[Rfam]
RNA sequence: CGGUUCUGCUUUAAGGGUGGGGCUGAUGGGGCAGGAGUCAGCAGACGCCAUAGUACCGACGGGAAAGUUAUAUGGGUCGGGAAGGGC
Numbered sequence: 001c002g003g004u005u006c007u008g009c010u011u012u013a014a015g016g017g018u019g020g021g022g023c024u025g026a027u028g029g030g031g032c033a034g035g036a037g038u039c040a041g042c043a044g045a046c047g048c049c050a051u052a053g054u055a056c057c058g059a060c061g062g063g064a065a066a067g068u069u070a071u072a073u074g075g076g077u078c079g080g081g082a083a084g085g086g087c
Stems, first nucleotide, its partner, number of pairs: 001025002004022008037046003047087003056080005
RNA: Group II catalytic intron D1-D4-1
Organism: Leucobacter exalbidus